RNA sequence: GGGAGAAGGCCUCCCGGAGUCGGCUUGCAGGAGCAGAUUCCAAACCACCCGGUGCUGCUGCGUUCAAAAGGCGUGGUGGUGAGCGACCGGGGACGUCAUCCGCAGAGGAUGGCGGG
Numbered sequence: 001g002g003g004a005g006a007a008g009g010c011c012u013c014c015c016g017g018a019g020u021c022g023g024c025u026u027g028c029a030g031g032a033g034c035a036g037a038u039u040c041c042a043a044a045c046c047a048c049c050c051g052g053u054g055c056u057g058c059u060g061c062g063u064u065c066a067a068a069a070g071g072c073g074u075g076g077u078g079g080u081g082a083g084c085g086a087c088c089g090g091g092g093a094c095g096u097c098a099u100c101c102g103c104a105g106a107g108g109a110u111g112g113c114g115g116g
Base pairs, nucleotide, nucleotide: 001015002014003013004012005011016041017040018039019038020037021036023034024033025032026031045116046115048091049090050089051088052087053086054080055079057077058076059075061073062072063071064070095113096112097111098110099109100108